[Rfam]
RNA sequence: AUCACCGGGGGAUCUUAUUAAACGGCAGAUUCUGAUGCAGUAGGUCUGGGAGUGGGGCUGCAGAUUCUGCAUUUCUAACAAGCUCCUAAGUGAUGCCAG
Numbered sequence: 001a002u003c004a005c006c007g008g009g010g011g012a013u014c015u016u017a018u019u020a021a022a023c024g025g026c027a028g029a030u031u032c033u034g035a036u037g038c039a040g041u042a043g044g045u046c047u048g049g050g051a052g053u054g055g056g057g058c059u060g061c062a063g064a065u066u067c068u069g070c071a072u073u074u075c076u077a078a079c080a081a082g083c084u085c086c087u088a089a090g091u092g093a094u095g096c097c098a099g
Stems, first nucleotide, its partner, number of pairs: 003092003009086003014082003018078003021074002025070005031064003
RNA: mir-544 microRNA precursor family